[Rfam]
RNA sequence: AGGUGAGGUAGAGGCGCGAAAACCAUAAGUACCCCGCCGGAGGAAUGAGAAUCCGGAGAAAGCGGGAGAAAGGGGAAUUCGCCGAAAUGGCAGAACGAAUCUCAACGUCUGCUGUUGGGUCUGCAUUGAAUAGGUGCAGGACUGUCACCGGAUUAUCAUCCCAGAUAGCCGGUGGAGCACUAUCUCGCAC
Numbered sequence: 001a002g003g004u005g006a007g008g009u010a011g012a013g014g015c016g017c018g019a020a021a022a023c024c025a026u027a028a029g030u031a032c033c034c035c036g037c038c039g040g041a042g043g044a045a046u047g048a049g050a051a052u053c054c055g056g057a058g059a060a061a062g063c064g065g066g067a068g069a070a071a072g073g074g075g076a077a078u079u080c081g082c083c084g085a086a087a088u089g090g091c092a093g094a095a096c097g098a099a100u101c102u103c104a105a106c107g108u109c110u111g112c113u114g115u116u117g118g119g120u121c122u123g124c125a126u127u128g129a130a131u132a133g134g135u136g137c138a139g140g141a142c143u144g145u146c147a148c149c150g151g152a153u154u155a156u157c158a159u160c161c162c163a164g165a166u167a168g169c170c171g172g173u174g175g176a177g178c179a180c181u182a183u184c185u186c187g188c189a190c
Stems, first nucleotide, its partner, number of pairs: 006185006016082005023075002033066005086116009117143002120140008145175007
Record summary: Rfam assigns this 190-nucleotide sequence from Aneurinibacillus migulanus to the family "Lysine riboswitch aptamer". A search with the family's covariance model found it, with a score of 126 bits. Lineage of the source: Bacteria > Bacillota > Bacilli > Caryophanales > Aneurinibacillus. The family's consensus secondary structure is taken from published work.